[Rfam]
RT-14 RNA: a 158-nucleotide RNA. Rfam's curators put it in the seed alignment. The family's consensus secondary structure is taken from published work.
Nucleotides: 158
Base pairs, nucleotide, nucleotide: 003059004058005057006056007055008054014050015049021044023042024041025040026039027038028037029036030035079098080097081096114158115157116156117155118154121150122149123148125146126145132140133139
Number, partner (000 for none) and nucleotide at each position: 001000c002000u003059u004058u005057g006056c007055c008054a009000u010000c011000u012000u013000c014050g015049u016000c017000a018000g019000a020000a021044g022000u023042u024041g025040u026039c027038a028037a029036c030035u031000c032000a033000a034000g035030g036029g037028u038027u039026g040025g041024c042023a043000u044021c045000c046000a047000g048000c049015a050014c051000a052000g053000u054008u055007g056006g057005u058004g059003a060000u061000a062000a063000a064000g065000g066000g067000g068000u069000c070000u071000g072000u073000u074000u075000c076000c077000u078000u079098g080097c081096c082000c083000u084000g085000c086000c087000a088000u089000a090000u091000g092000g093000c094000g095000c096081g097080g098079c099000a100000a101000a102000a103000a104000a105000u106000c107000u108000a109000c110000g111000u112000a113000g114158c115157u116156g117155c118154g119000a120000a121150u122149g123148c124000c125146g126145a127000c128000a129000a130000u131000a132140g133139g134000u135000a136000a137000a138000u139133c140132c141000g142000a143000a144000c145126u146125c147000c148123g149122c150121a151000a152000a153000g154118c155117g156116c157115a158114g